Description: EcpR1: a 110-nucleotide RNA from Methylovirgula sp. 4M-Z18. Rfam links the family to the GO terms mRNA binding, negative regulation of cell cycle and regulation of translation in response to stress. A search with the family's covariance model found it, with a score of 92 bits.
RNA sequence: ACACCCUGCGGAGAAGCUCAGGUCCGCCGCAUCUCCUGGGUCCGUAGGGUUGGCUGGCGGCAAAUGGAUGGAGUGGCCUCCUCGAAACACCAUUUGCCGCCGGCCACCAU
Numbered sequence: 001a002c003a004c005c006c007u008g009c010g011g012a013g014a015a016g017c018u019c020a021g022g023u024c025c026g027c028c029g030c031a032u033c034u035c036c037u038g039g040g041u042c043c044g045u046a047g048g049g050u051u052g053g054c055u056g057g058c059g060g061c062a063a064a065u066g067g068a069u070g071g072a073g074u075g076g077c078c079u080c081c082u083c084g085a086a087a088c089a090c091c092a093u094u095u096g097c098c099g100c101c102g103g104c105c106a107c108c109a110u
Base pairs, nucleotide, nucleotide: 003050004049005048006047007046008045009044010043017040018039019038020037021036022035052105053104054103055102056101057100058099059098060097061096062095
The organism belongs to Methylovirgula, within Bacteria. A reference for the family is Wilms et al. (2012), "Deep sequencing uncovers numerous small RNAs on all four replicons of the plant pathogen Agrobacterium tumefaciens", RNA Biol. From the family's description: Perviously named SmelC291, SmrC10, or Sra33. According to its overproduction phenotype it was renamed Elongated Cell Phenotype RNA1. Induced by stress,EcpR1 negatively regulates cell cycle master regulatory genes dnaA and gcrA at post-transcriptional level by base pairing between its strongly conserved GC-rich loop and the target mRNAs. It's regulation is hfq-independent but requires RNase E to regulate dnaA.